Iron response element I: a 36-nucleotide RNA sequence.
The family's RNA type in Rfam is cis-regulatory element.
The sequence is in the family's curated seed alignment.
Its family is annotated with response to iron ion in the Gene Ontology.
RNA sequence: CGGUCUCCUGCUUCAACAGUGCUUGGACGGAGCCCG
Numbered sequence: 001c002g003g004u005c006u007c008c009u010g011c012u013u014c015a016a017c018a019g020u021g022c023u024u025g026g027a028c029g030g031a032g033c034c035c036g
Stems, first nucleotide, its partner, number of pairs: 001036003005032004010028001012027005017021001